[Rfam]
RNA sequence: UAAAAAACGAAGACAGGGACAUACUUUAUCGUACGCCGUCUGAACAGCGAGCUGUGACAUGGUGAAAGCACAGUACAAUGGCAGGUAAAGACAUCACCCUGUAGUUCCGAUACUGAAAUAAAAGUAGGUACCGGCGGUUGUUUACCGUUAUACAAACCCAAAGUGGCUGUGUUUUUUCAGCUAUUAGGGUGGUACCGCGAGCCUUCUCGUCCCUAUC
Numbered sequence: 001u002a003a004a005a006a007a008c009g010a011a012g013a014c015a016g017g018g019a020c021a022u023a024c025u026u027u028a029u030c031g032u033a034c035g036c037c038g039u040c041u042g043a044a045c046a047g048c049g050a051g052c053u054g055u056g057a058c059a060u061g062g063u064g065a066a067a068g069c070a071c072a073g074u075a076c077a078a079u080g081g082c083a084g085g086u087a088a089a090g091a092c093a094u095c096a097c098c099c100u101g102u103a104g105u106u107c108c109g110a111u112a113c114u115g116a117a118a119u120a121a122a123a124g125u126a127g128g129u130a131c132c133g134g135c136g137g138u139u140g141u142u143u144a145c146c147g148u149u150a151u152a153c154a155a156a157c158c159c160a161a162a163g164u165g166g167c168u169g170u171g172u173u174u175u176u177u178c179a180g181c182u183a184u185u186a187g188g189g190u191g192g193u194a195c196c197g198c199g200a201g202c203c204u205u206c207u208c209g210u211c212c213c214u215a216u217c
Stems, first nucleotide, its partner, number of pairs: 007105002015100004025089006041077002051074006108133002111130004135147003166181004171176001186214004197210005
This 217-nucleotide sequence from Sinobaca qinghaiensis belongs to the Rfam family "T-box leader". Rfam links the family to the GO term tRNA binding. Lineage of the source: Bacteria > Bacillati > Bacilli > Caryophanales > Sinobaca. Uncharged tRNA acts as the effector for transcription antitermination of genes in the T-box leader family. T-boxes are found upstream of many aminoacyl-tRNA synthetase genes and some amino acid biosynthetic genes usually in Gram-positive bacteria. The anticodon of a specific tRNA base pairs to a specifier sequence within the T-box motif, and the NCCA acceptor tail of the tRNA base pairs to a conserved bulge in the T-box antiterminator hairpin. The match comes from Rfam's covariance-model search (105 bits). The family's consensus secondary structure is taken from published work.